[Rfam]
PyrR binding site: a 135-nucleotide RNA from Clostridium sp. HMP27. Rfam 15.1 lists 1,498 matches to the family in 930 species. Taxonomically the source falls in Clostridium (Bacteria, Clostridia, Eubacteriales, Clostridiaceae). It is annotated as a cis-regulatory element. Gene Ontology terms of the family: pyrimidine nucleobase biosynthetic process and pyrimidine nucleobase transport.

RNA sequence: UUUUCCUUUAAGAAAGGUCCCGUGAGACCUGGAAGGAAUGGUAAUUAGUAUGUAUAAAAUUAAUUAUGUUAUAAAUUAAUUUUAUAUUAUGUGCGGACUAUACCUUCCUUUUGAUAAAAGGAAGGUUUUUUUAUG
Numbered sequence: 001u002u003u004u005c006c007u008u009u010a011a012g013a014a015a016g017g018u019c020c021c022g023u024g025a026g027a028c029c030u031g032g033a034a035g036g037a038a039u040g041g042u043a044a045u046u047a048g049u050a051u052g053u054a055u056a057a058a059a060u061u062a063a064u065u066a067u068g069u070u071a072u073a074a075a076u077u078a079a080u081u082u083u084a085u086a087u088u089a090u091g092u093g094c095g096g097a098c099u100a101u102a103c104c105u106u107c108c109u110u111u112u113g114a115u116a117a118a119a120g121g122a123a124g125g126u127u128u129u130u131u132u133a134u135g
Stems, first nucleotide, its partner, number of pairs: 003038007015030005052087014100128001102126010